[Rfam]
RNA sequence: UAAUACAUGAUGACUUCCACGUUUAGCUUCUCUGGUGAACAGAACAGCAUGAGAGACUUUUCCAGAGUUAUUUUCAUCAAGUAAAUGUAA
Numbered sequence: 001u002a003a004u005a006c007a008u009g010a011u012g013a014c015u016u017c018c019a020c021g022u023u024u025a026g027c028u029u030c031u032c033u034g035g036u037g038a039a040c041a042g043a044a045c046a047g048c049a050u051g052a053g054a055g056a057c058u059u060u061u062c063c064a065g066a067g068u069u070a071u072u073u074u075c076a077u078c079a080a081g082u083a084a085a086u087g088u089a090a
Stems, first nucleotide, its partner, number of pairs: 001090001003088003028053003032047003
The record is a 90-nucleotide sequence from Balearica regulorum, which matches "Small nucleolar RNA SNORD116" in Rfam. Its family is annotated with nucleolus and RNA processing in the Gene Ontology. For this family Rfam cites "Identification of brain-specific and imprinted small nucleolar RNA genes exhibiting an unusual genomic organization" (Cavaille et al., Proc Natl Acad Sci U S A, 2000). Rfam 15.1 lists 3,260 matches to the family in 170 species. A search with the family's covariance model found it, with a score of 37 bits. Pairs were carried over by alignment from the consensus structure, which was predicted with PFOLD.